Bacterial large signal recognition particle RNA: a 264-nucleotide RNA from Clostridium paraputrificum. Rfam describes the family as follows. The signal recognition particle (SRP) is a universally conserved ribonucleoprotein involved in the co-translational targeting of proteins to membranes. Rfam links the family to the GO terms SRP-dependent cotranslational protein targeting to membrane, signal sequence recognition and signal recognition particle, plasma membrane targeting. By type it is a non-coding RNA gene.

RNA sequence: CCGUGCUAGAUGGGGAGUUAGCGGUGCCUUGUAACCUGCAAUCCGCUAUAGCAGGAUUGAAUUCUCUAGGGAGGCUAUAAUGAGUAUGGUCUGCCCUAUGUAAGUGGUGUUGAUAGUCGGGUCCCACGCAAUGGAACCCAUGAACCUCGUCAGGUCCGGAAGGAAGCAGCGAUAAGUGGUCACUUUCGUGUGCCGUGGAUUAAUCUGGCUUGAGCUAACUGCAUAGGUAACGCGUAUGAUUUAUAAUCGAACUAGGGUGCACGG
Numbered sequence: 001c002c003g004u005g006c007u008a009g010a011u012g013g014g015g016a017g018u019u020a021g022c023g024g025u026g027c028c029u030u031g032u033a034a035c036c037u038g039c040a041a042u043c044c045g046c047u048a049u050a051g052c053a054g055g056a057u058u059g060a061a062u063u064c065u066c067u068a069g070g071g072a073g074g075c076u077a078u079a080a081u082g083a084g085u086a087u088g089g090u091c092u093g094c095c096c097u098a099u100g101u102a103a104g105u106g107g108u109g110u111u112g113a114u115a116g117u118c119g120g121g122u123c124c125c126a127c128g129c130a131a132u133g134g135a136a137c138c139c140a141u142g143a144a145c146c147u148c149g150u151c152a153g154g155u156c157c158g159g160a161a162g163g164a165a166g167c168a169g170c171g172a173u174a175a176g177u178g179g180u181c182a183c184u185u186u187c188g189u190g191u192g193c194c195g196u197g198g199a200u201u202a203a204u205c206u207g208g209c210u211u212g213a214g215c216u217a218a219c220u221g222c223a224u225a226g227g228u229a230a231c232g233c234g235u236a237u238g239a240u241u242u243a244u245a246a247u248c249g250a251a252c253u254a255g256g257g258u259g260c261a262c263g264g
Stems, first nucleotide, its partner, number of pairs: 001264006009058003012030004017025003035055005064257006073248002076245002079242002084237005092229002096226006104219002106216003115210008124198005129190002132188005138179004147172004155164003